[Rfam]
RNA sequence: GGCUAUUCUCAGGGCGGGGUGCAAUUCCCCACCGGCGGUUACAGCCCGCGAGCCUGUCACAGGGCAGAUACCGGUGAAAUUCCGGAGCCGACGGUAUAGUCCGGAUGGAAGAGAAUGGAG
Number, nucleotide and partner (000 for none) at each position: 001g000002g000003c118004u117005a116006u115007u114008c113009u112010c111011a000012g000013g000014g000015c000016g000017g029018g028019g027020u000021g000022c000023a000024a000025u000026u000027c019028c018029c017030c000031a100032c099033c090034g089035g049036c048037g047038g046039u000040u000041a000042c000043a000044g088045c087046c038047c037048g036049c035050g000051a000052g065053c064054c063055u000056g000057u000058c000059a000060c000061a000062g000063g054064g053065c052066a000067g000068a000069u086070a000071c085072c084073g083074g082075u000076g000077a000078a000079a000080u000081u000082c074083c073084g072085g071086a069087g045088c044089c034090g033091a000092c103093g102094g101095u000096a000097u000098a000099g032100u031101c094102c093103g092104g000105a000106u000107g000108g000109a000110a000111g010112a009113g008114a007115a006116u005117g004118g003119a000120g000
RNA: FMN riboswitch aptamer (RFN element)